This 124-nucleotide sequence from Macrococcus lamae belongs to the Rfam family "Ribosomal protein L10 leader".
A search with the family's covariance model found it, with a score of 83 bits.
This family is a putative r-protein leader autoregulatory structure found in B. subtilis and other low-GC Gram-positive bacteria. It is located in the 5' untranslated regions of mRNAs encoding ribosomal proteins L10 and L12 (rplJ-rplL). A Rho-independent transcription terminator structure that is probably involved in regulation is included at the 3' end.
[Rfam]
RNA sequence: UGUACUUUGUGUUCAUAACCUAAGACAGCAGGGGCGUCAGCUUAAUCAUCCUGCCGAGGUGAAAAUUGACUUGAAUCUUCAAGCACUUUUUACCAUGGGUGAAAAGUGCUUUUUUAAUUCAUAU
Numbered sequence: 001u002g003u004a005c006u007u008u009g010u011g012u013u014c015a016u017a018a019c020c021u022a023a024g025a026c027a028g029c030a031g032g033g034g035c036g037u038c039a040g041c042u043u044a045a046u047c048a049u050c051c052u053g054c055c056g057a058g059g060u061g062a063a064a065a066u067u068g069a070c071u072u073g074a075a076u077c078u079u080c081a082a083g084c085a086c087u088u089u090u091u092a093c094c095a096u097g098g099g100u101g102a103a104a105a106g107u108g109c110u111u112u113u114u115u116a117a118u119u120c121a122u123a124u
Base pairs, nucleotide, nucleotide: 028054029053030052031051032050033049034041035040083109084108085107086106087105088104089103090102091101092100